[Rfam]
RNA: Small nucleolar RNA snoR27
Organism: Actinidia chinensis
RNA sequence: AUAGGAUCAAUGAUGCUCAAUGCGAACUGCGUUAUCUUUCUGUAAUUUCUUGAUUGGGAUUGAAGAUAGUUGUAUGAUUCUGAGAUUCUUU
Numbered sequence: 001a002u003a004g005g006a007u008c009a010a011u012g013a014u015g016c017u018c019a020a021u022g023c024g025a026a027c028u029g030c031g032u033u034a035u036c037u038u039u040c041u042g043u044a045a046u047u048u049c050u051u052g053a054u055u056g057g058g059a060u061u062g063a064a065g066a067u068a069g070u071u072g073u074a075u076g077a078u079u080c081u082g083a084g085a086u087u088c089u090u091u
Base pairs, nucleotide, nucleotide: 001091003089004088005087006086007085